The family of this 148-nucleotide sequence from Branchiostoma floridae is "U12 minor spliceosomal RNA". The source organism's lineage runs through Eukaryota, Eumetazoa, Chordata, Branchiostomatidae and Branchiostoma. A reference for the family is Tarn and Steitz (1997), "Pre-mRNA splicing: the discovery of a new spliceosome doubles the challenge", Trends Biochem Sci. It is annotated as a spliceosomal small nuclear RNA.
[Rfam]
RNA sequence: AUGCCUUAAACUAAUGAGUAAGGAAAAUAACGAGCCGGAGUGACGACCGGCUCCUAGCUCAGUUGCUAGAAGAAUUUUUUAGGGGGUACAGGUCGCCCUCGAGUGACCCGCUUACUUCGCGGGAUGCUCGUGUGUAGUGAUCUGCCCC
Numbered sequence: 001a002u003g004c005c006u007u008a009a010a011c012u013a014a015u016g017a018g019u020a021a022g023g024a025a026a027a028u029a030a031c032g033a034g035c036c037g038g039a040g041u042g043a044c045g046a047c048c049g050g051c052u053c054c055u056a057g058c059u060c061a062g063u064u065g066c067u068a069g070a071a072g073a074a075u076u077u078u079u080u081a082g083g084g085g086g087u088a089c090a091g092g093u094c095g096c097c098c099u100c101g102a103g104u105g106a107c108c109c110g111c112u113u114a115c116u117u118c119g120c121g122g123g124a125u126g127c128u129c130g131u132g133u134g135u136a137g138u139g140a141u142c143u144g145c146c147c148c
Base pairs, nucleotide, nucleotide: 004023005022006021007020008019032053033052034051035050036049037048038047054069055068056067057066058065083148084147085146086145087144090143091142092141093140094139095138096137098132101129102128103127104126105125107123108122109121110120111119